This 77-nucleotide sequence from Phyllotreta striolata belongs to the Rfam family "mir-67 microRNA precursor family". A reference for the family is Cao et al. (2008), "Identification of conserved microRNAs in Bombyx mori (silkworm) and regulation of fibroin L chain production by microRNAs in heterologous system", Insect Biochem Mol Biol. Taxonomically the source falls in Phyllotreta (Eukaryota, Insecta, Dicondylia, Galerucinae).

[Rfam]
RNA sequence: CUUUUUGGUUACUCACUCAACCUGGGUGUGAUGUGUUUUCAUUCCAUCACAACCUCCUUGAGUGAGCGAUUAAGGGG
Number, nucleotide and partner (000 for none) at each position: 001c000002u000003u000004u000005u000006u000007g000008g000009u068010u000011a000012c066013u065014c064015a063016c062017u061018c060019a059020a058021c000022c000023u000024g054025g053026g000027u051028g050029u049030g048031a047032u046033g045034u000035g000036u000037u000038u000039u000040c000041a000042u000043u000044c000045c033046a032047u031048c030049a029050c028051a027052a000053c025054c024055u000056c000057c000058u020059u019060g018061a017062g016063u015064g014065a013066g012067c000068g009069a000070u000071u000072a000073a000074g000075g000076g000077g000
The base pairs follow the family's consensus structure, which was predicted with RNAalifold.